[Rfam]
Nucleotides: 080
Base pairs, nucleotide, nucleotide: 001080002079003078004077005076006075007074
Number, partner (000 for none) and nucleotide at each position: 001080a002079c003078u004077g005076g006075c007074a008000c009000a010000a011000u012000g013000a014000u015000g016000a017000g018000a019000u020000c021000u022000u023000u024000g025000c026000c027000g028000u029000u030000u031000a032000c033000c034000c035000a036000u037000c038000u039000g040000a041000c042000u043000g044000c045000u046000u047000a048000c049000u050000g051000a052000u053000g054000u055000g056000u057000a058000u059000u060000u061000u062000u063000u064000g065000a066000a067000u068000c069000u070000g071000a072000g073000a074007u075006g076005c077004c078003a079002g080001u
Shown here is an 80-nucleotide sequence from Penelope pileata, a member of the family "Small nucleolar RNA SNORD87". It scores 56 bits against the family's covariance model. For this family Rfam cites "U87 RNA, a novel C/D box small nucleolar RNA from mammalian cells" (Gogolevskaya et al., Gene, 2002). Gene Ontology terms of the family: nucleolus and RNA processing. Rfam classes the family as a C/D-box small nucleolar RNA. The base pairs follow the family's consensus structure. The organism belongs to Penelope, within Eukaryota.